[Rfam]
Rfam assigns this 54-nucleotide RNA sequence from Salvelinus namaycush to the family "UnaL2 LINE 3' element".

RNA sequence: UGUACGCAUGACUGUAAAUCGCUUUGGAUAUAAGCGUCUGCUAAAUUGCAUAUA
Numbered sequence: 001u002g003u004a005c006g007c008a009u010g011a012c013u014g015u016a017a018a019u020c021g022c023u024u025u026g027g028a029u030a031u032a033a034g035c036g037u038c039u040g041c042u043a044a045a046u047u048g049c050a051u052a053u054a
Stems, first nucleotide, its partner, number of pairs: 013043001014041003020036005
The family's RNA type in Rfam is cis-regulatory element. It scores 61 bits against the family's covariance model. The base pairs follow the family's consensus structure, which is taken from published work. The source organism's lineage runs through Eukaryota, Metazoa, Eumetazoa, Salmonidae and Salvelinus.